[Rfam]
RNA: Small nucleolar RNA SNORA84
Organism: Ardeotis kori
RNA sequence: GCCCUGUGGUUACUGGAGGCUGGUUUGUGCAUACAGUGCUUCAGUGAGGAGAAAUGGGCCAAAAGUGAUACUGUGGUUUAUGCAUGGAGUCUGUGCUACGCGAGCAGCCUCCAUAGCCCGGUCACAGUUACAGAC
Numbered sequence: 001g002c003c004c005u006g007u008g009g010u011u012a013c014u015g016g017a018g019g020c021u022g023g024u025u026u027g028u029g030c031a032u033a034c035a036g037u038g039c040u041u042c043a044g045u046g047a048g049g050a051g052a053a054a055u056g057g058g059c060c061a062a063a064a065g066u067g068a069u070a071c072u073g074u075g076g077u078u079u080a081u082g083c084a085u086g087g088a089g090u091c092u093g094u095g096c097u098a099c100g101c102g103a104g105c106a107g108c109c110u111c112c113a114u115a116g117c118c119c120g121g122u123c124a125c126a127g128u129u130a131c132a133g134a135c
Stems, first nucleotide, its partner, number of pairs: 001059004007050001010047008019037004071127001073125006082117002084114004089109001091107004